[Rfam]
RNA sequence: GGGCUGUGAUGACUGAGAACAUUCCUCGAUUCUGAUAAGGACCAAAUCAAGUUGUUUGGUCUGUGAUGACAAAUCAAGUUGUUUGGUCUGUGAUGACAAUGUUUGUGCGUGUCUGAGCCUC
Numbered sequence: 001g002g003g004c005u006g007u008g009a010u011g012a013c014u015g016a017g018a019a020c021a022u023u024c025c026u027c028g029a030u031u032c033u034g035a036u037a038a039g040g041a042c043c044a045a046a047u048c049a050a051g052u053u054g055u056u057u058g059g060u061c062u063g064u065g066a067u068g069a070c071a072a073a074u075c076a077a078g079u080u081g082u083u084u085g086g087u088c089u090g091u092g093a094u095g096a097c098a099a100u101g102u103u104u105g106u107g108c109g110u111g112u113c114u115g116a117g118c119c120u121c
Stems, first nucleotide, its partner, number of pairs: 001120004

Shown here is a 121-nucleotide RNA from Glycine max, a member of the family "small nucleolar RNA snoR126". The match comes from Rfam's covariance-model search (57 bits). Rfam classes the family as a C/D-box small nucleolar RNA.